[Rfam]
A member of the RNA family "BsrC" from Desulfuribacillus stibiiarsenatis, 86 nucleotides long. The source organism's lineage runs through Bacteria, Bacillota, Desulfuribacillia, Desulfuribacillaceae and Desulfuribacillus. About the family: The 301 nucleotide sequence from Kouji Nakamura has been trimmed to a highly conserved ~85 nucleotide long core to form this family. The family has 29 seed sequences and 572 matches in Rfam 15.1.
RNA sequence: AACAAAUUAAACGAUGUAAGCCCUACCUCUCAAACAUUCUUACGGCUCCAAAGCCGAUCCAGGUGAAUAAUUAUCAAAUUGAACAU
Numbered sequence: 001a002a003c004a005a006a007u008u009a010a011a012c013g014a015u016g017u018a019a020g021c022c023c024u025a026c027c028u029c030u031c032a033a034a035c036a037u038u039c040u041u042a043c044g045g046c047u048c049c050a051a052a053g054c055c056g057a058u059c060c061a062g063g064u065g066a067a068u069a070a071u072u073a074u075c076a077a078a079u080u081g082a083a084c085a086u
Stems, first nucleotide, its partner, number of pairs: 035065002039062002043056005